[Rfam]
RNA sequence: UUGCAUUAGGGAUAAGAGUGGCAUCCUUUUUUGCGUGGGUUUGAUGCAGUCGAGAAUACGUAAAAAAGAUAUAACGGAUAGCCCGACCACUC
Numbered sequence: 001u002u003g004c005a006u007u008a009g010g011g012a013u014a015a016g017a018g019u020g021g022c023a024u025c026c027u028u029u030u031u032u033g034c035g036u037g038g039g040u041u042u043g044a045u046g047c048a049g050u051c052g053a054g055a056a057u058a059c060g061u062a063a064a065a066a067a068g069a070u071a072u073a074a075c076g077g078a079u080a081g082c083c084c085g086a087c088c089a090c091u092c
Stems, first nucleotide, its partner, number of pairs: 009084003013080002018075002023070003029065008
A member of the RNA family "Flavo-1 RNA" from Aquimarina algiphila, 92 nucleotides long. Rfam 15.1 lists 7,497 matches to the family in 411 species. NCBI's taxonomy places the organism under Bacteria, Pseudomonadati, Bacteroidota, Flavobacteriia, Aquimarina. The family's RNA type in Rfam is small RNA. A search with the family's covariance model found it, with a score of 54 bits. Pairs were carried over by alignment from the consensus structure, which is taken from published work.